[Rfam]
RNA sequence: UGGAGGAUAAAGUGUUCUGGUGUCACUCACGGACUUCAAAUCCGAGGACAGGGCGGUUGACCGUUUUGUGGGGAGUUCGAUUCUCUCAUCCUCUC
Number, nucleotide and partner (000 for none) at each position: 001u000002g094003g093004a092005g091006g090007a089008u088009a000010a000011a027012g026013u025014g024015u000016u000017c022018u000019g000020g000021u000022g017023u000024c014025a013026c012027u011028c046029a000030c044031g043032g042033a041034c000035u000036u000037c000038a000039a000040a000041u033042c032043c031044g030045a000046g028047g000048a069049c068050a067051g066052g065053g064054c063055g000056g000057u000058u000059g000060a000061c000062c000063g054064u053065u052066u051067u050068g049069u048070g000071g000072g086073g085074a084075g083076u000077u000078c000079g000080a000081u000082u000083c075084u074085c073086u072087c000088a008089u007090c006091c005092u004093c003094u002095c000

Shown here is a 95-nucleotide sequence from Campylobacter pinnipediorum, a member of the family "Selenocysteine transfer RNA".
A search with the family's covariance model found it, with a score of 50 bits.
Taxonomically the source falls in Campylobacter pinnipediorum (Bacteria, Pseudomonadati, Campylobacterota, Campylobacteraceae).